[Rfam]
RNA: ROOL RNA
Organism: Streptococcus danieliae
RNA sequence: GAUUUCAAUCAAUUUUUCAAGUAACUUGGUGAAGAUUGGUUGACACCUUGCCAAGGUUGUAUGCGUAAAUCUCGUUUCGCUGGAUGUGGGAUACUGCGUCAGGAUAAGAAAUUAUCUGAUUGGUGACAAUUGGAUGUUGCGAUGUGAGAGAGUAGCAAGAGUGCGUACAGCGUGGAGUCCAUGCGUAACUAGAUCAACAACAGACGGCGGUAGUGAUAAUAGACGCCCCAGUGGGGAAUAACCCGUGAAUCCCUUGCUUUGCAACAAGCGGUGAAACGGGAAUGCAAAACCAAGCUAUGAUGCACUUUGACGAGUGAAAAGCUCGUUGCUUACGCUAAAGUUGUGUACAAGUAGCCUAAAUGUGCAGAAAGAAAGGAACACAUCUCUUUGAAAUUCUGAAUGUCAGGUGAAAGUUGGAGGUAACCAGUCCUACCUAGUCCUUGUAAUGCUAAAGAAGUCUUGAGGUCGCUCCUCUUGGCUCAGACUUUAGUUGACUAUCGAUUAAUGAGUUGCGUACGGGUGAAGCAGAGUGAAGGCUCACUUGAAAAAUUGAUUGAA
Numbered sequence: 001g002a003u004u005u006c007a008a009u010c011a012a013u014u015u016u017u018c019a020a021g022u023a024a025c026u027u028g029g030u031g032a033a034g035a036u037u038g039g040u041u042g043a044c045a046c047c048u049u050g051c052c053a054a055g056g057u058u059g060u061a062u063g064c065g066u067a068a069a070u071c072u073c074g075u076u077u078c079g080c081u082g083g084a085u086g087u088g089g090g091a092u093a094c095u096g097c098g099u100c101a102g103g104a105u106a107a108g109a110a111a112u113u114a115u116c117u118g119a120u121u122g123g124u125g126a127c128a129a130u131u132g133g134a135u136g137u138u139g140c141g142a143u144g145u146g147a148g149a150g151a152g153u154a155g156c157a158a159g160a161g162u163g164c165g166u167a168c169a170g171c172g173u174g175g176a177g178u179c180c181a182u183g184c185g186u187a188a189c190u191a192g193a194u195c196a197a198c199a200a201c202a203g204a205c206g207g208c209g210g211u212a213g214u215g216a217u218a219a220u221a222g223a224c225g226c227c228c229c230a231g232u233g234g235g236g237a238a239u240a241a242c243c244c245g246u247g248a249a250u251c252c253c254u255u256g257c258u259u260u261g262c263a264a265c266a267a268g269c270g271g272u273g274a275a276a277c278g279g280g281a282a283u284g285c286a287a288a289a290c291c292a293a294g295c296u297a298u299g300a301u302g303c304a305c306u307u308u309g310a311c312g313a314g315u316g317a318a319a320a321g322c323u324c325g326u327u328g329c330u331u332a333c334g335c336u337a338a339a340g341u342u343g344u345g346u347a348c349a350a351g352u353a354g355c356c357u358a359a360a361u362g363u364g365c366a367g368a369a370a371g372a373a374a375g376g377a378a379c380a381c382a383u384c385u386c387u388u389u390g391a392a393a394u395u396c397u398g399a400a401u402g403u404c405a406g407g408u409g410a411a412a413g414u415u416g417g418a419g420g421u422a423a424c425c426a427g428u429c430c431u432a433c434c435u436a437g438u439c440c441u442u443g444u445a446a447u448g449c450u451a452a453a454g455a456a457g458u459c460u461u462g463a464g465g466u467c468g469c470u471c472c473u474c475u476u477g478g479c480u481c482a483g484a485c486u487u488u489a490g491u492u493g494a495c496u497a498u499c500g501a502u503u504a505a506u507g508a509g510u511u512g513c514g515u516a517c518g519g520g521u522g523a524a525g526c527a528g529a530g531u532g533a534a535g536g537c538u539c540a541c542u543u544g545a546a547a548a549a550u551u552g553a554u555u556g557a558a
Stems, first nucleotide, its partner, number of pairs: 007555016025055005038047002058169006075111004080102003084099006113136010141156001143154003179520002188511001190509001197344004206336004210298005226236004242280005250271002253268004259287004301366005310326005348413001354408004359403001395484004417433001419431002435497003447494001448492001450490001452488003457480001459477001462474004528539004